[Rfam]
RNA sequence: UUGCCGUGGGUAAGUCCUACACAACCAGCUCCCUUUGAAUCCUCCAGGGCAGGAAUGCAGCAAAGGUAUUAGGUCGUAGCGGUGUGAUGUAGAUCGCUUACCCUUUU
Numbered sequence: 001u002u003g004c005c006g007u008g009g010g011u012a013a014g015u016c017c018u019a020c021a022c023a024a025c026c027a028g029c030u031c032c033c034u035u036u037g038a039a040u041c042c043u044c045c046a047g048g049g050c051a052g053g054a055a056u057g058c059a060g061c062a063a064a065g066g067u068a069u070u071a072g073g074u075c076g077u078a079g080c081g082g083u084g085u086g087a088u089g090u091a092g093a094u095c096g097c098u099u100a101c102c103c104u105u106u107u
Base pairs, nucleotide, nucleotide: 008103009102010101011100012099013098014097015096017092018091019090020089021088022086023085024083025082
About this RNA
This 107-nucleotide RNA from Aureibaculum marinum belongs to the Rfam family "Bacteroidales small SRP". On this family, see Ryan et al., Nat Commun 2020: "A high-resolution transcriptome map identifies small RNA regulation of metabolism in the gut microbe Bacteroides thetaiotaomicron". Lineage of the source: Bacteria > Pseudomonadati > Flavobacteriia > Flavobacteriaceae > Aureibaculum. Its family is annotated with SRP-dependent cotranslational protein targeting to membrane, signal sequence recognition and signal recognition particle, plasma membrane targeting in the Gene Ontology. Its Rfam clan is "SRP clan".